[Rfam]
RNA sequence: AGUUGGCUUAAUCUCAGCUGGCAACUGUGAGCAGUUAAUAACUCUCUCACAGUUGUAGCUGGGAUUAUGC
Dot-bracket structure: .....((.(((((((((...(((..((((((..............)))))).).))..))))))))).))